[Rfam]
RNA sequence: UUGAAGGAUUAUAUCGAAGAGUCAAAUGAUAGAGUAACGUCUUGAAGGGCUCUCUCUUAGUCGAAUAGCACUGAAGUUAGUAAGAAUAACAGUGUUAUAAGCUCGGCAAGAAGGUGUAAGAAUUUACCGUAACAGUGAUUUUUAGCUGUCGAAAGUCUACCCGCGGGGGUGGUGUAAAUCAUGAUGCUGAGUUGAUUGA
Numbered sequence: 001u002u003g004a005a006g007g008a009u010u011a012u013a014u015c016g017a018a019g020a021g022u023c024a025a026a027u028g029a030u031a032g033a034g035u036a037a038c039g040u041c042u043u044g045a046a047g048g049g050c051u052c053u054c055u056c057u058u059a060g061u062c063g064a065a066u067a068g069c070a071c072u073g074a075a076g077u078u079a080g081u082a083a084g085a086a087u088a089a090c091a092g093u094g095u096u097a098u099a100a101g102c103u104c105g106g107c108a109a110g111a112a113g114g115u116g117u118a119a120g121a122a123u124u125u126a127c128c129g130u131a132a133c134a135g136u137g138a139u140u141u142u143u144a145g146c147u148g149u150c151g152a153a154a155g156u157c158u159a160c161c162c163g164c165g166g167g168g169g170u171g172g173u174g175u176a177a178a179u180c181a182u183g184a185u186g187c188u189g190a191g192u193u194g195a196u197u198g199a
Stems, first nucleotide, its partner, number of pairs: 018053006031043002034040001054191003061106004065098009076087003113188005122179006128151002134147002155173003159170004